Rfam assigns this 123-nucleotide sequence from Gillisella ampelina to the family "Rhizobiales sRNA Atu_C8".
RNA sequence: GAUCAAUUUUAACAUUCUUCUCGUGGUGGGUACGCGCAUGGGCAUGACGGUGUGACCGUCAGGCAAUAGCCUCCCAUGCGCGACAGACAGGCUCCUUCCAGGGGCCUUUUUUUAUGGCCAAAA
Numbered sequence: 001g002a003u004c005a006a007u008u009u010u011a012a013c014a015u016u017c018u019u020c021u022c023g024u025g026g027u028g029g030g031u032a033c034g035c036g037c038a039u040g041g042g043c044a045u046g047a048c049g050g051u052g053u054g055a056c057c058g059u060c061a062g063g064c065a066a067u068a069g070c071c072u073c074c075c076a077u078g079c080g081c082g083a084c085a086g087a088c089a090g091g092c093u094c095c096u097u098c099c100a101g102g103g104g105c106c107u108u109u110u111u112u113u114a115u116g117g118c119c120a121a122a123a
Stems, first nucleotide, its partner, number of pairs: 007028001009026001029119003033082010045061006063070002087108001089107007
Rfam classes the family as a small RNA. Taxonomically the source falls in Gillisella ampelina (Bacteria, Pseudomonadota, Alphaproteobacteria, Gillisella).